[Rfam]
RNA sequence: GGCCCCAAGUGAUGGAGAAAUGCCCUUGGGAGAACAGUGACCAAAUUGGGACGUAUUCGUACUGUCUGAUGGGGUC
Numbered sequence: 001g002g003c004c005c006c007a008a009g010u011g012a013u014g015g016a017g018a019a020a021u022g023c024c025c026u027u028g029g030g031a032g033a034a035c036a037g038u039g040a041c042c043a044a045a046u047u048g049g050g051a052c053g054u055a056u057u058c059g060u061a062c063u064g065u066c067u068g069a070u071g072g073g074g075u076c
Stems, first nucleotide, its partner, number of pairs: 001076007011066005019057005024050002028047002